[Rfam]
RNA sequence: AAAAACCAUUUGAAAAGAAGAGUAAUCUAGGUUGAUGUUCUACAGAGAGCCCUGUUUUGGUGAGAAGGGUGGACUGAGGUUUAGAUGAAGAUGGCCUUUGAUGGGACGAUUCGAUAUUAGAGUCGUACGGUUCUUCCCGUUACAGAAGUAGAGUAUGUAUGUACUUGAUGAGAGCAUAAGUGUGCGAGCAUUUAUGAAAUAAGGUGGUAACGCGAAUUUUCGUCCUUAGU
Numbered sequence: 001a002a003a004a005a006c007c008a009u010u011u012g013a014a015a016a017g018a019a020g021a022g023u024a025a026u027c028u029a030g031g032u033u034g035a036u037g038u039u040c041u042a043c044a045g046a047g048a049g050c051c052c053u054g055u056u057u058u059g060g061u062g063a064g065a066a067g068g069g070u071g072g073a074c075u076g077a078g079g080u081u082u083a084g085a086u087g088a089a090g091a092u093g094g095c096c097u098u099u100g101a102u103g104g105g106a107c108g109a110u111u112c113g114a115u116a117u118u119a120g121a122g123u124c125g126u127a128c129g130g131u132u133c134u135u136c137c138c139g140u141u142a143c144a145g146a147a148g149u150a151g152a153g154u155a156u157g158u159a160u161g162u163a164c165u166u167g168a169u170g171a172g173a174g175c176a177u178a179a180g181u182g183u184g185c186g187a188g189c190a191u192u193u194a195u196g197a198a199a200u201a202a203g204g205u206g207g208u209a210a211c212g213c214g215a216a217u218u219u220u221c222g223u224c225c226u227u228a229g230u
Stems, first nucleotide, its partner, number of pairs: 007103002015098003025086006038073003049070005106126007128139003175196007201227004212223004